[Rfam]
RNA sequence: AUACCACCUGCACUAUCACAAGGUGAAUGCACGGUGGGUACCACACACCGUGCAUUCAUCUUGUGAUAGUGCAGGUGGUAUUUU
Dot-bracket structure: .....(((((..((((.(((((((((.(((.(((((.......))..))).))).))))))))).))))..)))))........
Numbered sequence: 001a002u003a004c005c006a007c008c009u010g011c012a013c014u015a016u017c018a019c020a021a022g023g024u025g026a027a028u029g030c031a032c033g034g035u036g037g038g039u040a041c042c043a044c045a046c047a048c049c050g051u052g053c054a055u056u057c058a059u060c061u062u063g064u065g066a067u068a069g070u071g072c073a074g075g076u077g078g079u080a081u082u083u084u
Stems, first nucleotide, its partner, number of pairs: 006076005013069004018064009028054003032050003035045002
Source information
The record is an 84-nucleotide RNA sequence from Cryptotermes secundus, which matches "mir-228 microRNA precursor family" in Rfam. The organism belongs to Cryptotermes, within Eukaryota. Clan: mir-182 clan.